[Rfam]
The family of this 150-nucleotide RNA from Nannospalax galili is "U1 spliceosomal RNA". U1 is a small nuclear RNA (snRNA) component of the spliceosome (involved in pre-mRNA splicing). The literature on the family includes a 1990 paper in Proc Natl Acad Sci U S A by Kretzner et al., "Saccharomyces cerevisiae U1 small nuclear RNA secondary structure contains both universal and yeast-specific domains". Taxonomically the source falls in Nannospalax (Eukaryota, Opisthokonta, Sarcopterygii, Rodentia).

RNA sequence: AUACUUACCUGGCAGGGGAGAUACCAUGAUCAUGAAGGUGCUUUUCCCAGGGGAGGUUUAUCCAUUGCACUUCGAAUGUGCUGACCCCUGCAAUUUCCCCAAAUGUGGGAAACUCGACUGCAUAAUUUGUGGUAGUGCCGUUUGUGCUCU
Numbered sequence: 001a002u003a004c005u006u007a008c009c010u011g012g013c014a015g016g017g018g019a020g021a022u023a024c025c026a027u028g029a030u031c032a033u034g035a036a037g038g039u040g041c042u043u044u045u046c047c048c049a050g051g052g053g054a055g056g057u058u059u060a061u062c063c064a065u066u067g068c069a070c071u072u073c074g075a076a077u078g079u080g081c082u083g084a085c086c087c088c089u090g091c092a093a094u095u096u097c098c099c100c101a102a103a104u105g106u107g108g109g110a111a112a113c114u115c116g117a118c119u120g121c122a123u124a125a126u127u128u129g130u131g132g133u134a135g136u137g138c139c140g141u142u143u144g145u146g147c148u149c150u
Stems, first nucleotide, its partner, number of pairs: 012121004016048006023042001025040003049089005055082003059078003063074001091116001093114001094112003098108002